[Rfam]
RNA sequence: CAAAAUAAUGACAACGAAAAUAACAUCAAGGAGACAUUGGAACAGCAUCGGCAACAGCAACAGGCCUUUUCAGGUAUGAGUCACGUGGAAUAUUCCAGAAUUACA
Numbered sequence: 001c002a003a004a005a006u007a008a009u010g011a012c013a014a015c016g017a018a019a020a021u022a023a024c025a026u027c028a029a030g031g032a033g034a035c036a037u038u039g040g041a042a043c044a045g046c047a048u049c050g051g052c053a054a055c056a057g058c059a060a061c062a063g064g065c066c067u068u069u070u071c072a073g074g075u076a077u078g079a080g081u082c083a084c085g086u087g088g089a090a091u092a093u094u095c096c097a098g099a100a101u102u103a104c105a
Stems, first nucleotide, its partner, number of pairs: 014086003019081001023077001025075003029070005035064001037062001
Dot-bracket structure: .............(((..(...(.(((.(((((.(.(........................).).)))))..))).)...)..)))...................
Rfam assigns this 105-nucleotide RNA sequence from Saccharomyces mikatae to the family "Ure2 internal ribosome entry site (IRES)". For this family Rfam cites "A small stem loop element directs internal initiation of the URE2 internal ribosome entry site in Saccharomyces cerevisiae" (Reineke et al., J Biol Chem, 2008).